Rfam assigns this 162-nucleotide RNA from Kribbella caucasensis to the family "c-di-AMP riboswitch aptamer (ydaO/yuaA leader)". The organism belongs to Kribbella, within Bacteria.

RNA sequence: CACAUGUUCCCCUCGAAUACCAAUGGCAGGGGUGGGGGACCCAGGAGGUUGGGUCUCGACCGUGAGUGGUCGGGUCCCUGGGGUGAAGUCCGCGGGAGCGGACCGGGCUAGUUUCUCAGCCCGAACCCGACAGCUAACUCCGCAGGCGUCGGGAGACAACCA
Numbered sequence: 001c002a003c004a005u006g007u008u009c010c011c012c013u014c015g016a017a018u019a020c021c022a023a024u025g026g027c028a029g030g031g032g033u034g035g036g037g038g039a040c041c042c043a044g045g046a047g048g049u050u051g052g053g054u055c056u057c058g059a060c061c062g063u064g065a066g067u068g069g070u071c072g073g074g075u076c077c078c079u080g081g082g083g084u085g086a087a088g089u090c091c092g093c094g095g096g097a098g099c100g101g102a103c104c105g106g107g108c109u110a111g112u113u114u115c116u117c118a119g120c121c122c123g124a125a126c127c128c129g130a131c132a133g134c135u136a137a138c139u140c141c142g143c144a145g146g147c148g149u150c151g152g153g154a155g156a157c158a159a160c161c162a
Base pairs, nucleotide, nucleotide: 001031003029032143033142034141035140036139037138042080043079044078045077081128082127083126089102090101091100092099105122106121107120108119